This 124-nucleotide RNA sequence from Lachnospiraceae bacterium 9_1_43BFAA belongs to the Rfam family "FMN riboswitch aptamer (RFN element)".
Lineage of the source: Bacteria > Bacillati > Bacillota > Clostridia > Lachnospiraceae.
A search with the family's covariance model found it, with a score of 116 bits.
[Rfam]
RNA sequence: AAAAUUCUUCGGGGUAGGGUGCAAGUCCCAACCGGCGGUAAAGUCCGCGACCUGCCUGGGAACAGGUGGCUGAACUGGUGAGAUUCCAGUACCGACAGUAUAGUCUGGAUGAGAGAAGAAUCAU
Number, nucleotide and partner (000 for none) at each position: 001a000002a000003a000004a121005u120006u119007c118008u117009u116010c115011g000012g000013g000014g000015u000016a000017g029018g028019g027020u000021g000022c000023a000024a000025g000026u000027c019028c018029c017030a000031a104032c103033c094034g093035g048036c047037g046038g045039u000040a000041a000042a000043g092044u091045c038046c037047g036048c035049g000050a000051c000052c069053u068054g000055c000056c000057u000058g000059g000060g000061a000062a000063c000064a000065g000066g000067u000068g053069g052070c000071u000072g000073a000074a090075c089076u088077g087078g086079u000080g000081a000082g000083a000084u000085u000086c078087c077088a076089g075090u074091a044092c043093c034094g033095a000096c107097a106098g105099u000100a000101u000102a000103g032104u031105c098106u097107g096108g000109a000110u000111g000112a000113g000114a000115g010116a009117a008118g007119a006120a005121u004122c000123a000124u000